[Rfam]
RNA sequence: AUGAACCUAAACGACGUAAGCCCUACCUCUCUUACAUCCUUACGGCUCCGAAGCCGAUCCAGUGUGAAUAAGUACAUAUCAAAACAG
Numbered sequence: 001a002u003g004a005a006c007c008u009a010a011a012c013g014a015c016g017u018a019a020g021c022c023c024u025a026c027c028u029c030u031c032u033u034a035c036a037u038c039c040u041u042a043c044g045g046c047u048c049c050g051a052a053g054c055c056g057a058u059c060c061a062g063u064g065u066g067a068a069u070a071a072g073u074a075c076a077u078a079u080c081a082a083a084a085c086a087g
Stems, first nucleotide, its partner, number of pairs: 035066002039062002043056005
The family of this 87-nucleotide RNA from Rossellomorea aquimaris is "BsrC". The literature on the family includes a 2008 paper in Gene by Saito et al., "Novel small RNA-encoding genes in the intergenic regions of Bacillus subtilis". It scores 76 bits against the family's covariance model. Rfam classes the family as a small RNA. The base pairs follow the family's consensus structure, which was predicted with CMfinder. The family has 29 seed sequences and 572 matches in Rfam 15.1. The 301 nucleotide sequence from Kouji Nakamura has been trimmed to a highly conserved ~85 nucleotide long core to form this family.